[Rfam]
This 68-nucleotide sequence from Mycobacterium ulcerans belongs to the Rfam family "ASdes TB sRNA". A reference for the family is Arnvig and Young (2009), "Identification of small RNAs in Mycobacterium tuberculosis", Mol Microbiol.
RNA sequence: AGCUCUACGGGGUCGACAGCACGUGUCACCACCAGAUAGUCACGCAGCGCGGUGCUGUGUCGGUUCUC
Dot-bracket structure: ...((..((.(((.((((.....)))))))....(.((.((.((...)).)))).).))..)).....
The family's RNA type in Rfam is small RNA.